[Rfam]
RNA sequence: ACAAAUGAUCUAAAUAUCUCAGGGCCUUGCAUAAGACCUAGUGAACAAUUUUUGGAGACCCUAUUCUCAGGAAUAGGGUG
Numbered sequence: 001a002c003a004a005a006u007g008a009u010c011u012a013a014a015u016a017u018c019u020c021a022g023g024g025c026c027u028u029g030c031a032u033a034a035g036a037c038c039u040a041g042u043g044a045a046c047a048a049u050u051u052u053u054g055g056a057g058a059c060c061c062u063a064u065u066c067u068c069a070g071g072a073a074u075a076g077g078g079u080g
Stems, first nucleotide, its partner, number of pairs: 022039003026035003058079009
This 80-nucleotide RNA from Caenorhabditis brenneri belongs to the Rfam family "SmY spliceosomal RNA".
By type it is a spliceosomal small nuclear RNA.
The base pairs follow the family's consensus structure, which is taken from published work.
It is one of the family's seed sequences.
The organism belongs to Caenorhabditis, within Eukaryota.